[Rfam]
RNA sequence: CUCGAGCGCCUGCUGCGGGCAGAUGCAGUGGAUGUGCGUGUCGAUGCCGCCGGCCGUGACAAUCUUGCCCUCGCCGGCCACCACGUCGGUGCAGCUGCCGACGACCAUGCCGGGCGUCACGCCGUCCAUGACGUCCGGGCUGCCCGCCUUGCCGAUGCCGACAAUGAGGCCGUCCUUGACGCCAAUGUCGGCCUUGUAGAUGCCGGUCCAGUCGACAAUGAGGGCGUUUGUGACGACGAGGUCGAGCGAGUCCGCGUCCGAGCGGCCCGUCGCCUGGCCCAUGCCCUCGCGCAG
Numbered sequence: 001c002u003c004g005a006g007c008g009c010c011u012g013c014u015g016c017g018g019g020c021a022g023a024u025g026c027a028g029u030g031g032a033u034g035u036g037c038g039u040g041u042c043g044a045u046g047c048c049g050c051c052g053g054c055c056g057u058g059a060c061a062a063u064c065u066u067g068c069c070c071u072c073g074c075c076g077g078c079c080a081c082c083a084c085g086u087c088g089g090u091g092c093a094g095c096u097g098c099c100g101a102c103g104a105c106c107a108u109g110c111c112g113g114g115c116g117u118c119a120c121g122c123c124g125u126c127c128a129u130g131a132c133g134u135c136c137g138g139g140c141u142g143c144c145c146g147c148c149u150u151g152c153c154g155a156u157g158c159c160g161a162c163a164a165u166g167a168g169g170c171c172g173u174c175c176u177u178g179a180c181g182c183c184a185a186u187g188u189c190g191g192c193c194u195u196g197u198a199g200a201u202g203c204c205g206g207u208c209c210a211g212u213c214g215a216c217a218a219u220g221a222g223g224g225c226g227u228u229u230g231u232g233a234c235g236a237c238g239a240g241g242u243c244g245a246g247c248g249a250g251u252c253c254g255c256g257u258c259c260g261a262g263c264g265g266c267c268c269g270u271c272g273c274c275u276g277g278c279c280c281a282u283g284c285c286c287u288c289g290c291g292c293a294g
Base pairs, nucleotide, nucleotide: 001294002293006290007289008288011163012162014160015159017075018074021071022070029052030051031050033049034048036047037046038045039044056068057067058066076153077152080149091143092142093141094140095139098138099137100135101134102133106130107129109126111124112122169278170277171276172275176272178271179270180269181268182265183264191225192224193223194222195221206213230263235258236257240253241252
Shown here is a 294-nucleotide RNA from Ophiocordyceps sinensis, a member of the family "5' ureB small RNA". NCBI's taxonomy places the organism under Eukaryota, leotiomyceta, Hypocreomycetidae, Ophiocordycipitaceae, Ophiocordyceps. For this family Rfam cites "Helicobacter pylori 5'ureB-sRNA, a cis-encoded antisense small RNA, negatively regulates ureAB expression by transcription termination" (Wen et al., J Bacteriol, 2013).